[Rfam]
RNA: Group II catalytic intron D1-D4-6
Organism: Anaerobacillus alkalidiazotrophicus
RNA sequence: GGAUUCCCGUCGAGUAAGAACUAGCCAUUCGCUCGUAGCGAGUCUUGGAGGGCUGAAGGUAACUUUAGUCUUUAAGCGUAGACAGUGAGGUGGCGGGCCGAAAGCCAAGCGGUUGAAGGGAUUGAGCUCCAUAAUGUUAGUUAUUCGAGAGGGUUGAUGCCUUACGCAUAGCAGAAAACUACAUUCUAUCCUUCGUAAAAGGCGAGAAUUGCGUGUGCGGCCGAGCCUA
Numbered sequence: 001g002g003a004u005u006c007c008c009g010u011c012g013a014g015u016a017a018g019a020a021c022u023a024g025c026c027a028u029u030c031g032c033u034c035g036u037a038g039c040g041a042g043u044c045u046u047g048g049a050g051g052g053c054u055g056a057a058g059g060u061a062a063c064u065u066u067a068g069u070c071u072u073u074a075a076g077c078g079u080a081g082a083c084a085g086u087g088a089g090g091u092g093g094c095g096g097g098c099c100g101a102a103a104g105c106c107a108a109g110c111g112g113u114u115g116a117a118g119g120g121a122u123u124g125a126g127c128u129c130c131a132u133a134a135u136g137u138u139a140g141u142u143a144u145u146c147g148a149g150a151g152g153g154u155u156g157a158u159g160c161c162u163u164a165c166g167c168a169u170a171g172c173a174g175a176a177a178a179c180u181a182c183a184u185u186c187u188a189u190c191c192u193u194c195g196u197a198a199a200a201g202g203c204g205a206g207a208a209u210u211g212c213g214u215g216u217g218c219g220g221c222c223g224a225g226c227c228u229a
Base pairs, nucleotide, nucleotide: 011035012034013033014032018030019029020028022205024203025202038086039085042083043082044081045080046078047077048073049072050071051070052069053068054067055066056065057064058063123229124227126226127225128224129223149218153179154178155177158173159172160171185215187213189211192208193207194206